Rfam assigns this 138-nucleotide RNA sequence from Liparis tanakae to the family "Small nucleolar RNA SNORA79".
Pairs were carried over by alignment from the consensus structure, which was predicted with RNAalifold.
The organism belongs to Liparis, within Eukaryota.
It is annotated as an H/ACA-box small nucleolar RNA.
Rfam describes the family as follows. ACA65 (SNORA79) is a member of the H/ACA class of snoRNAs that guide the sites of modification of uridines to pseudouridines.
Gene Ontology terms of the family: nucleolus and RNA processing.
The family has 25 seed sequences and 944 matches in Rfam 15.1.
[Rfam]
RNA sequence: CGACGUCGGUUCCUCCCCCCGGCGGCAGUGUGUCGGGGGGCUUUCACGACGUCGCAGAGUAACGAGUCCCAUUCACCCAGGGCGCCUCGGGCCGGCGGCGGCGGCGGCGGCGUCCUGGUUUUGCGAGACUCGACAGAA
Numbered sequence: 001c002g003a004c005g006u007c008g009g010u011u012c013c014u015c016c017c018c019c020c021g022g023c024g025g026c027a028g029u030g031u032g033u034c035g036g037g038g039g040g041c042u043u044u045c046a047c048g049a050c051g052u053c054g055c056a057g058a059g060u061a062a063c064g065a066g067u068c069c070c071a072u073u074c075a076c077c078c079a080g081g082g083c084g085c086c087u088c089g090g091g092c093c094g095g096c097g098g099c100g101g102c103g104g105c106g107g108c109g110g111c112g113u114c115c116u117g118g119u120u121u122u123g124c125g126a127g128a129c130u131c132g133a134c135a136g137a138a
Base pairs, nucleotide, nucleotide: 001054002053003052004051005050006049007048008047015040016039017038018037020035021034022033023032065130066129067128068127070125077118078117079116080115081114082113083112084111085110086109091105092104093103094102